[Rfam]
RNA sequence: GUGAAGUGGUGAUGAAUCCAUUCUCAGAGUGCUGCUGCAAUGCCCUCCCUGCGGCAUGCAGAUUCCUGUACUAGGAUCCCCGUGCUGUGCAGCCUCCAAAUACCCUCCAGCCUUUCAUUGUUUUGCUGGGAGCCGCUAGUGCGUCUGGCCAACUCUGUGCAGGAGAGGGGCAGAGCCAGCAGGGUGGGAGCUCCUCUUCAUGGAGGCUCUGUCUCAACUAAGAUGAGUGCUGUCUGAUCAC
Numbered sequence: 001g002u003g004a005a006g007u008g009g010u011g012a013u014g015a016a017u018c019c020a021u022u023c024u025c026a027g028a029g030u031g032c033u034g035c036u037g038c039a040a041u042g043c044c045c046u047c048c049c050u051g052c053g054g055c056a057u058g059c060a061g062a063u064u065c066c067u068g069u070a071c072u073a074g075g076a077u078c079c080c081c082g083u084g085c086u087g088u089g090c091a092g093c094c095u096c097c098a099a100a101u102a103c104c105c106u107c108c109a110g111c112c113u114u115u116c117a118u119u120g121u122u123u124u125g126c127u128g129g130g131a132g133c134c135g136c137u138a139g140u141g142c143g144u145c146u147g148g149c150c151a152a153c154u155c156u157g158u159g160c161a162g163g164a165g166a167g168g169g170g171c172a173g174a175g176c177c178a179g180c181a182g183g184g185u186g187g188g189a190g191c192u193c194c195u196c197u198u199c200a201u202g203g204a205g206g207c208u209c210u211g212u213c214u215c216a217a218c219u220a221a222g223a224u225g226a227g228u229g230c231u232g233u234c235u236g237a238u239c240a241c
Stems, first nucleotide, its partner, number of pairs: 010240004019229005025222001029218002034180004038175001041172005046166002049163002051160002053086006061080001064076004089158004095152001103141001104139001108135001110134001112132006119125002182215003187210003191206002
RNA: Small nucleolar RNA SNORD17
Organism: Gopherus evgoodei